Overview
Rfam assigns this 60-nucleotide RNA to the family "RAGATH-18 RNA". The base pairs follow the family's consensus structure, which is taken from published work. Rfam classes the family as a small RNA.

[Rfam]
RNA sequence: CCUCCGGACUGUUAUACAACCUGAGUAGCAAGUGCGAAAAGGAACAGGAUGAACGAGGAA
Numbered sequence: 001c002c003u004c005c006g007g008a009c010u011g012u013u014a015u016a017c018a019a020c021c022u023g024a025g026u027a028g029c030a031a032g033u034g035c036g037a038a039a040a041g042g043a044a045c046a047g048g049a050u051g052a053a054c055g056a057g058g059a060a
Base pairs, nucleotide, nucleotide: 001058002057003056004055009047010046011045012044013043020042021041022040028035029034
Dot-bracket structure: ((((....(((((......(((.....((....))....)))))))).......))))..